[Rfam]
RNA sequence: UUUUUCCUCUAACAUAUGGACCUGUGCUCAGCGAUCCUGACUCUGCCACACCUUCGGGUAUCGACAGAUGUUCCAGUUGCAUUGCUGAGCAGUUCGAUCGAACCUAAGGAGCCACCUUCGAUUCUUCCAACAGAGGGGAUCAAAUUAUGGUGCCAAUUUUCCGGUCGACAGGUCUUAGAAGGAUCGGUCACCUCCCGCACUCUCUGCCUGAGCUCCCUCAGGGUGAUUCUCGGCAGGGAGGGAGGUCGCUGAAGGCGUCAUAUUCCGCUUCCCUUUGCUAAAGCCGUUGGCUCGUGAAGUUGGGGACAAACCAUGACUGCACACAUCU
Numbered sequence: 001u002u003u004u005u006c007c008u009c010u011a012a013c014a015u016a017u018g019g020a021c022c023u024g025u026g027c028u029c030a031g032c033g034a035u036c037c038u039g040a041c042u043c044u045g046c047c048a049c050a051c052c053u054u055c056g057g058g059u060a061u062c063g064a065c066a067g068a069u070g071u072u073c074c075a076g077u078u079g080c081a082u083u084g085c086u087g088a089g090c091a092g093u094u095c096g097a098u099c100g101a102a103c104c105u106a107a108g109g110a111g112c113c114a115c116c117u118u119c120g121a122u123u124c125u126u127c128c129a130a131c132a133g134a135g136g137g138g139a140u141c142a143a144a145u146u147a148u149g150g151u152g153c154c155a156a157u158u159u160u161c162c163g164g165u166c167g168a169c170a171g172g173u174c175u176u177a178g179a180a181g182g183a184u185c186g187g188u189c190a191c192c193u194c195c196c197g198c199a200c201u202c203u204c205u206g207c208c209u210g211a212g213c214u215c216c217c218u219c220a221g222g223g224u225g226a227u228u229c230u231c232g233g234c235a236g237g238g239a240g241g242g243a244g245g246u247c248g249c250u251g252a253a254g255g256c257g258u259c260a261u262a263u264u265c266c267g268c269u270u271c272c273c274u275u276u277g278c279u280a281a282a283g284c285c286g287u288u289g290g291c292u293c294g295u296g297a298a299g300u301u302g303g304g305g306a307c308a309a310a311c312c313a314u315g316a317c318u319g320c321a322c323a324c325a326u327c328u
Stems, first nucleotide, its partner, number of pairs: 018175008026090006033083003036079001037076003041070001043067002047063001050059003099167002102165003108154002111151003185248002190246006205235004210231003214226002216223002255320002257317005270306005277300003282292004
Dot-bracket structure: .................((((((((((((((.(((((((.(.((..(..(((....)))...)..))..)...)))..).))).))))))........((.(((...((.(((...................................))).))........))))))))))))).........((...((((((.........((((.(((.((((....)).))..))))))).....))))))))......(((((((........(((((..(((..((((...)))).....))).)))))......))))).))........